[Rfam]
RNA sequence: GCCGCGCCUAGCUCGACGGGGCGAAAGCAGGGUUCCCUUACCCUGUUGGCGCGGCUCUUUCCAAGGG
Number, nucleotide and partner (000 for none) at each position: 001g055002c054003c053004g052005c051006g050007c049008c048009u000010a000011g022012c021013u020014c019015g000016a000017c000018g000019g014020g013021g012022c011023g000024a000025a000026a000027g000028c045029a044030g043031g042032g041033u000034u000035c067036c066037c065038u064039u063040a000041c032042c031043c030044u029045g028046u000047u000048g008049g007050c006051g005052c004053g003054g002055c001056u000057c000058u000059u000060u000061c000062c000063a039064a038065g037066g036067g035

Background:
A member of the RNA family "int-alpA RNA" from Burkholderia dolosa, 67 nucleotides long. It is one of the family's seed sequences. Lineage of the source: Bacteria > Pseudomonadati > Betaproteobacteria > Burkholderiales > Burkholderia dolosa.